[Rfam]
RNA: SAM riboswitch aptamer (S box leader)
RNA sequence: UACUUAUCCAGAAAGACUGAGGGAAUAGGCCCAAUGAAGUCUUAGCAACCUGUUGCCGAAUAAGGUGCUAAAUCCUUCCGCUAUAAGCGGGCAGAUAAGAA
Numbered sequence: 001u002a003c004u005u006a007u008c009c010a011g012a013a014a015g016a017c018u019g020a021g022g023g024a025a026u027a028g029g030c031c032c033a034a035u036g037a038a039g040u041c042u043u044a045g046c047a048a049c050c051u052g053u054u055g056c057c058g059a060a061u062a063a064g065g066u067g068c069u070a071a072a073u074c075c076u077u078c079c080g081c082u083a084u085a086a087g088c089g090g091g092c093a094g095a096u097a098a099g100a101a
Stems, first nucleotide, its partner, number of pairs: 001101001003099006013043005021032003027076003044069004049065002051062004073093001078090004